[Rfam]
RNA sequence: UUCGCUGAAUUUCGGCGAUCUGCUAAACACAUCCGCGCGCAGGUCCGAAUUGCAACCGGGCCCUCUCCUUCCUGGAGUGUCCCUGCGCG
Numbered sequence: 001u002u003c004g005c006u007g008a009a010u011u012u013c014g015g016c017g018a019u020c021u022g023c024u025a026a027a028c029a030c031a032u033c034c035g036c037g038c039g040c041a042g043g044u045c046c047g048a049a050u051u052g053c054a055a056c057c058g059g060g061c062c063c064u065c066u067c068c069u070u071c072c073u074g075g076a077g078u079g080u081c082c083c084u085g086c087g088c089g
Stems, first nucleotide, its partner, number of pairs: 002018005036089005042062006063079001065077004
The family of this 89-nucleotide RNA sequence is "ATPC RNA motif". The sequence is in the family's curated seed alignment. The family's RNA type in Rfam is non-coding RNA gene. The literature on the family includes a 2007 paper in Nucleic Acids Res by Weinberg et al., "Identification of 22 candidate structured RNAs in bacteria using the CMfinder comparative genomics pipeline".